[Rfam]
Rfam assigns this 90-nucleotide RNA from Oryza nivara to the family "MIR1862 microRNA precursor family".

RNA sequence: UACUCCCUCGGUCUCAAAAUAAGCUAAUCUCGUAUCAGGAUGUGACACAUCCUUGUACGAGGUUAAUUUAUUUUGGGACGGAGGGAGUAC
Numbered sequence: 001u002a003c004u005c006c007c008u009c010g011g012u013c014u015c016a017a018a019a020u021a022a023g024c025u026a027a028u029c030u031c032g033u034a035u036c037a038g039g040a041u042g043u044g045a046c047a048c049a050u051c052c053u054u055g056u057a058c059g060a061g062g063u064u065a066a067u068u069u070a071u072u073u074u075g076g077g078a079c080g081g082a083g084g085g086a087g088u089a090c
Base pairs, nucleotide, nucleotide: 001089002088003087004086005085006084007083008082009081011079012078013077014076015075016074017073018072019071020070021069022068023067025065026064027063028062029061030060031059032058033057034056035055038052039051040050
The family has 4 seed sequences and 74 matches in Rfam 15.1.